[Rfam]
RNA: mir-130 microRNA precursor family
RNA sequence: GCCUGUCCAGUGCCCUUUUUAUGUUGUACUACUAGUGGUCACACACAAAAAAAGCAGUGCAAUGUUAAAAGGGCAUUGGCCAGGGC
Numbered sequence: 001g002c003c004u005g006u007c008c009a010g011u012g013c014c015c016u017u018u019u020u021a022u023g024u025u026g027u028a029c030u031a032c033u034a035g036u037g038g039u040c041a042c043a044c045a046c047a048a049a050a051a052a053a054g055c056a057g058u059g060c061a062a063u064g065u066u067a068a069a070a071g072g073g074c075a076u077u078g079g080c081c082a083g084g085g086c
Stems, first nucleotide, its partner, number of pairs: 001086003005081001007079004012074008022064009